[Rfam]
RNA: Small nucleolar RNA SNORA68
Organism: Erinaceus europaeus
RNA sequence: CCAGCACCAAGGGCCACUAUUUACUGUAAUAGUGGUUCAAACACAGGUGCUAACAGCAAAGGGUACCUCUCACCUUUGGAGGAAUUUCUGUGCCCUUCAAAGUGAAUUUAGAGGUUCUACACAC
Numbered sequence: 001c002c003a004g005c006a007c008c009a010a011g012g013g014c015c016a017c018u019a020u021u022u023a024c025u026g027u028a029a030u031a032g033u034g035g036u037u038c039a040a041a042c043a044c045a046g047g048u049g050c051u052a053a054c055a056g057c058a059a060a061g062g063g064u065a066c067c068u069c070u071c072a073c074c075u076u077u078g079g080a081g082g083a084a085u086u087u088c089u090g091u092g093c094c095c096u097u098c099a100a101a102g103u104g105a106a107u108u109u110a111g112a113g114g115u116u117c118u119a120c121a122c123a124c
Base pairs, nucleotide, nucleotide: 001046012037013036014035015034016033017032018031019030020029021028063117065115066114067113068112069111074102075101076100077099078098079097080096081095082094